[Rfam]
RNA: Archaeal large subunit ribosomal RNA, nucleotides 1723 to 2080
Organism: Natranaeroarchaeum sulfidigenes
RNA sequence: CGGGAGCAACCGACGUUAGGGAAUUCGGCAAGUUAGUCCCGUACGUUCGCAAGAAGGGAUGCCUGCUCUCUAUGGAGCAGGUCGCAGUGUCUCGGACGCUCCGACUGUCUAGUAACAACACAGGUGACUGCAAAUCCGCAAGGACUCGUACAGUCACUGAAUCCUGCCCAGUGCGGGUAUCUGAACACCCAGUACAAUGGGACGAAGGACCCGUUAACGGCGGGGGUAACUAUGACCCUCUUAAGGUAGCGUAGUACCUUGCCGCUUCAGUAGCGGCUUGCACGAAUGGAUGAACGAGAGCGUCACUGUCCCAACGUUGGGCCCGGUGAACUGUACAUUCCAGUGCGGAGUCUGGAGC
Numbered sequence: 001c002g003g004g005a006g007c008a009a010c011c012g013a014c015g016u017u018a019g020g021g022a023a024u025u026c027g028g029c030a031a032g033u034u035a036g037u038c039c040c041g042u043a044c045g046u047u048c049g050c051a052a053g054a055a056g057g058g059a060u061g062c063c064u065g066c067u068c069u070c071u072a073u074g075g076a077g078c079a080g081g082u083c084g085c086a087g088u089g090u091c092u093c094g095g096a097c098g099c100u101c102c103g104a105c106u107g108u109c110u111a112g113u114a115a116c117a118a119c120a121c122a123g124g125u126g127a128c129u130g131c132a133a134a135u136c137c138g139c140a141a142g143g144a145c146u147c148g149u150a151c152a153g154u155c156a157c158u159g160a161a162u163c164c165u166g167c168c169c170a171g172u173g174c175g176g177g178u179a180u181c182u183g184a185a186c187a188c189c190c191a192g193u194a195c196a197a198u199g200g201g202a203c204g205a206a207g208g209a210c211c212c213g214u215u216a217a218c219g220g221c222g223g224g225g226g227u228a229a230c231u232a233u234g235a236c237c238c239u240c241u242u243a244a245g246g247u248a249g250c251g252u253a254g255u256a257c258c259u260u261g262c263c264g265c266u267u268c269a270g271u272a273g274c275g276g277c278u279u280g281c282a283c284g285a286a287u288g289g290a291u292g293a294a295c296g297a298g299a300g301c302g303u304c305a306c307u308g309u310c311c312c313a314a315c316g317u318u319g320g321g322c323c324c325g326g327u328g329a330a331c332u333g334u335a336c337a338u339u340c341c342a343g344u345g346c347g348g349a350g351u352c353u354g355g356a357g358c
Base pairs, nucleotide, nucleotide: 001325002324003323004322010320011319012318013317014316015315016314017313019311020310021309036060037059038058039057040056045050061082062081063080064079065078066077067076068075069074083087095304096303097302098301099300100299101298102296103295106120107119108118123158124157125156126155127154128153129152130151131148135144136143137142161291162290163289164288166221167220168219171218172217173214174213175212176211177210180209181208182207188201189200190199191198222240223239224238225237226236227235241245261277262276263275264274265273266272339356340355341354342353343352